[Rfam]
RNA sequence: CAGUUAAAAAGCUGUAGUUGGAUCUUGGGAGUGGGUGGUCUGCUGCGAGGUGAGCCACCGCCCGUCCCCGCCCCUUGCCUCUUGGCGCCCCCUUGAUGCUCUUAGCUGAGUGUCCCGUGGGGCCCGAAGCGUUUACUUUGGAAAAAUUAGUGUUCAAAGCAGGCCUGAGCCGCCUGGUUACUGCAGCUAGGAAUAAUGGAAUAGGACCACUGUUCUGUUUUGUUGGUUUUUGGAACUGAGGCCAUGUUUAAGAGGAACGGCCGGGGGCAUUCGUAUUGUGCCGCUAGAGGGGAAAUUCUUGGACCAGCGCAAGAUGGACCAGAGUGAAAGCUUUUGCCAAGAGUGUUGUCAUUAAUCAAGAAUGGAAGUCAGGUUUAAAGACUAUCAGAUACUGUCGUAGUUCUGACCAUAAAUGAUGCUGACUGGUGAUGUGGUGUUAUUCCCAUGACCCACUGGGCAGCUUCUGGGAAACCAAAGUCUUUGGGUUUGGGGGGGGAGUAUGGUUGCAAAGCUGAAACUUGAAU
Number, nucleotide and partner (000 for none) at each position: 001c490002a000003g488004u000005u000006a000007a000008a000009a487010a000011g363012c000013u361014g000015u000016a000017g356018u355019u354020g000021g000022a000023u000024c000025u000026u000027g000028g000029g000030a000031g000032u000033g000034g000035g000036u000037g000038g000039u000040c000041u000042g000043c000044u000045g000046c000047g000048a000049g000050g000051u000052g000053a000054g000055c000056c000057a000058c000059c000060g000061c000062c000063c000064g000065u000066c000067c000068c000069c000070g000071c000072c000073c000074c000075u000076u000077g000078c000079c000080u000081c000082u000083u000084g000085g000086c000087g000088c000089c000090c000091c000092c000093u000094u000095g000096a000097u000098g000099c000100u000101c000102u000103u000104a000105g000106c000107u000108g000109a000110g000111u000112g000113u000114c000115c000116c000117g000118u000119g000120g000121g000122g000123c000124c000125c000126g000127a000128a000129g000130c000131g000132u000133u000134u000135a000136c000137u000138u000139u000140g000141g000142a000143a000144a000145a000146a000147u000148u000149a000150g000151u000152g000153u000154u000155c000156a000157a000158a000159g000160c000161a000162g000163g000164c000165c000166u000167g000168a000169g000170c000171c000172g000173c000174c000175u000176g000177g000178u000179u000180a000181c000182u000183g000184c000185a000186g000187c000188u000189a000190g000191g000192a000193a000194u000195a000196a000197u000198g000199g000200a000201a000202u000203a000204g000205g000206a000207c000208c000209a000210c000211u000212g000213u000214u000215c000216u000217g000218u000219u000220u000221u000222g000223u000224u000225g000226g000227u000228u000229u000230u000231u000232g000233g000234a000235a000236c000237u000238g000239a000240g000241g000242c000243c000244a000245u000246g000247u000248u000249u000250a000251a000252g000253a000254g350255g349256a000257a347258c345259g344260g000261c000262c341263g000264g000265g000266g338267g337268c336269a335270u000271u000272c316273g315274u000275a000276u312277u311278g310279u309280g308281c307282c000283g305284c000285u000286a000287g298288a297289g296290g000291g000292g000293a000294a000295a000296u289297u288298c287299u000300u000301g000302g000303a000304c000305c283306a000307g281308c280309g279310c278311a277312a276313g000314a000315u273316g272317g000318a000319c000320c000321a332322g000323a000324g331325u330326g000327a000328a000329a000330g325331c324332u321333u000334u000335u269336g268337c267338c266339a000340a000341g262342a000343g000344u259345g258346u000347u257348g000349u255350c254351a000352u000353u000354a019355a018356u017357c000358a000359a000360g000361a013362a000363u011364g000365g000366a000367a000368g407369u406370c405371a404372g403373g402374u000375u000376u400377a000378a000379a000380g396381a395382c394383u000384a000385u000386c000387a000388g000389a000390u000391a000392c000393u000394g382395u381396c380397g000398u000399a000400g376401u000402u373403c372404u371405g370406a369407c368408c000409a000410u000411a000412a000413a000414u000415g000416a000417u000418g486419c485420u484421g479422a478423c477424u000425g462426g461427u460428g000429a000430u457431g453432u452433g451434g450435u000436g449437u448438u447439a000440u000441u000442c000443c000444c000445a000446u000447g438448a437449c436450c434451c433452a432453c431454u000455g000456g000457g430458c000459a000460g427461c426462u425463u000464c000465u000466g473467g472468g000469a000470a000471a000472c467473c466474a000475a000476a000477g423478u422479c421480u000481u000482u000483g000484g420485g419486u418487u009488u003489g000490g001491g000492g520493g519494g518495g000496g000497a000498g000499u000500a000501u000502g513503g512504u511505u510506g000507c000508a000509a000510a505511g504512c503513u502514g000515a000516a000517a000518c494519u493520u492521g000522a000523a000524u000